[Rfam]
RNA sequence: AGCUUUUUUCGCACAGGCGGAGCUCGACCGCCCAUACAAACGAUGAUCAACUUUAUCGAGCAAUAUCAGCCGUGUUAUGGUGUUGAAGUAAUCUGCACGGUAUUGCCGACUGCACUC
Numbered sequence: 001a002g003c004u005u006u007u008u009u010c011g012c013a014c015a016g017g018c019g020g021a022g023c024u025c026g027a028c029c030g031c032c033c034a035u036a037c038a039a040a041c042g043a044u045g046a047u048c049a050a051c052u053u054u055a056u057c058g059a060g061c062a063a064u065a066u067c068a069g070c071c072g073u074g075u076u077a078u079g080g081u082g083u084u085g086a087a088g089u090a091a092u093c094u095g096c097a098c099g100g101u102a103u104u105g106c107c108g109a110c111u112g113c114a115c116u117c
Stems, first nucleotide, its partner, number of pairs: 016032005079116004089112002092109002095106003
Rfam assigns this 117-nucleotide RNA from Suttonella ornithocola to the family "ALIL pseudoknot". Its family is annotated with positive regulation of translational frameshifting in the Gene Ontology. The match comes from Rfam's covariance-model search (78 bits). The base pairs follow the family's consensus structure, which is taken from published work.